[Rfam]
RNA: che1 RNA
Organism: Streptomyces sp. BoleA5
RNA sequence: CGGACAGGGGGGUCUCCGCCGUCCGGCGGGGCCUGUCCAGCAGGUUGCGCGAGAGCGUGGCCGUGUGGUUGUCGCUCGGGGGUGAUCGCCG
Numbered sequence: 001c002g003g004a005c006a007g008g009g010g011g012g013u014c015u016c017c018g019c020c021g022u023c024c025g026g027c028g029g030g031g032c033c034u035g036u037c038c039a040g041c042a043g044g045u046u047g048c049g050c051g052a053g054a055g056c057g058u059g060g061c062c063g064u065g066u067g068g069u070u071g072u073c074g075c076u077c078g079g080g081g082g083u084g085a086u087c088g089c090c091g
Stems, first nucleotide, its partner, number of pairs: 002038007014031007043062008